[Rfam]
RNA sequence: AACCGUCUUCAGGGCGGGGCGCAAUUCCCCACCGGUGGUAUGGCUUUCGAGCCGAGCCCACGAGCGCUUUCGACGUAUCGAAAGGUCAGCAGAUCUGGUGAGAGGCCAGAGCCGACGGUCACAGUCCGGAUGAAAGAAGACGCGG
Numbered sequence: 001a002a003c004c005g006u007c008u009u010c011a012g013g014g015c016g017g018g019g020c021g022c023a024a025u026u027c028c029c030c031a032c033c034g035g036u037g038g039u040a041u042g043g044c045u046u047u048c049g050a051g052c053c054g055a056g057c058c059c060a061c062g063a064g065c066g067c068u069u070u071c072g073a074c075g076u077a078u079c080g081a082a083a084g085g086u087c088a089g090c091a092g093a094u095c096u097g098g099u100g101a102g103a104g105g106c107c108a109g110a111g112c113c114g115a116c117g118g119u120c121a122c123a124g125u126c127c128g129g130a131u132g133a134a135a136g137a138a139g140a141c142g143c144g145g
Stems, first nucleotide, its partner, number of pairs: 004142007017029003031125002033114002035061004056112002064090002094110005116128003
Rfam assigns this 145-nucleotide RNA from Salinisphaera sp. Q1T1-3 to the family "FMN riboswitch aptamer (RFN element)". Pairs were carried over by alignment from the consensus structure, which is taken from published work.